The record is an 89-nucleotide RNA from Aromatoleum tolulyticum, which matches "c-di-GMP-I riboswitch aptamer" in Rfam. It scores 64 bits against the family's covariance model. NCBI's taxonomy places the organism under Bacteria, Betaproteobacteria, Rhodocyclales, Rhodocyclaceae, Aromatoleum.
RNA sequence: AACACAAAUCGGCACUCCCGCGCGAAAGGCGGGGUCGCAAAGCUUCCGGUCUACAACCUUUUAGAGGUCACGAUAGCGGGGUUGCCGGG
Numbered sequence: 001a002a003c004a005c006a007a008a009u010c011g012g013c014a015c016u017c018c019c020g021c022g023c024g025a026a027a028g029g030c031g032g033g034g035u036c037g038c039a040a041a042g043c044u045u046c047c048g049g050u051c052u053a054c055a056a057c058c059u060u061u062u063a064g065a066g067g068u069c070a071c072g073a074u075a076g077c078g079g080g081g082u083u084g085c086c087g088g089g
Stems, first nucleotide, its partner, number of pairs: 012038002017033005023028001041083004046079003049074003056068004
Dot-bracket structure: ...........((...(((((.(....))))))...))..((((.((((((....((((.....))))...)))..)))))))......